Metazoan signal recognition particle RNA: a 298-nucleotide RNA sequence from Ibidorhyncha struthersii. A reference for the family is Wild et al. (2002), "Towards the structure of the mammalian signal recognition particle", Curr Opin Struct Biol. Its Rfam clan is "SRP clan". Rfam describes the family as follows. The signal recognition particle (SRP) is a universally conserved ribonucleoprotein. It is involved in the co-translational targeting of proteins to membranes. The eukaryotic SRP consists of a 300-nucleotide 7S RNA and six proteins: SRPs 72, 68, 54, 19, 14, and 9. NCBI's taxonomy places the organism under Eukaryota, Bilateria, Dipnotetrapodomorpha, Sauria, Ibidorhyncha. Pairs were carried over by alignment from the consensus structure, which is taken from published work.
RNA sequence: GAAGGCAUUUGAAGGUAAUGCUCUCACCCUUUUUCUGGGCUGGUGUACAGUCAUAAGCCCACUGGAUCACUUGAGCCCAGGAGUUCUGGGCUGCAGUGUGCUAGGUGUCCGUGCUAAGGCCGGCAUCAAUAUGGUGAGCCCCAGCGAGUCGGGGGACACCAGGUUGACUAAGGAGGGGUGAACCAGUCCAGGUUGGAGAUGGAGCAAGUCAAAACUCCCAUGCUGGUCAGUAGUGGGAUCACACCUGUGCAGAGCCACUGCAGCGUGGCCUGGGCAACACAGAGAGAUGUGGGCUCCU
Numbered sequence: 001g002a003a004g005g006c007a008u009u010u011g012a013a014g015g016u017a018a019u020g021c022u023c024u025c026a027c028c029c030u031u032u033u034u035c036u037g038g039g040c041u042g043g044u045g046u047a048c049a050g051u052c053a054u055a056a057g058c059c060c061a062c063u064g065g066a067u068c069a070c071u072u073g074a075g076c077c078c079a080g081g082a083g084u085u086c087u088g089g090g091c092u093g094c095a096g097u098g099u100g101c102u103a104g105g106u107g108u109c110c111g112u113g114c115u116a117a118g119g120c121c122g123g124c125a126u127c128a129a130u131a132u133g134g135u136g137a138g139c140c141c142c143a144g145c146g147a148g149u150c151g152g153g154g155g156a157c158a159c160c161a162g163g164u165u166g167a168c169u170a171a172g173g174a175g176g177g178g179u180g181a182a183c184c185a186g187u188c189c190a191g192g193u194u195g196g197a198g199a200u201g202g203a204g205c206a207a208g209u210c211a212a213a214a215c216u217c218c219c220a221u222g223c224u225g226g227u228c229a230g231u232a233g234u235g236g237g238a239u240c241a242c243a244c245c246u247g248u249g250c251a252g253a254g255c256c257a258c259u260g261c262a263g264c265g266u267g268g269c270c271u272g273g274g275c276a277a278c279a280c281a282g283a284g285a286g287a288u289g290u291g292g293g294c295u296c297c298u
Stems, first nucleotide, its partner, number of pairs: 001048001003046001004022006027045001029043001056295007067285002070282002075275007086268003090264009100255003103246006109237002112235005118228009127166004132161005139154004144149001168172001175218005186209002193202003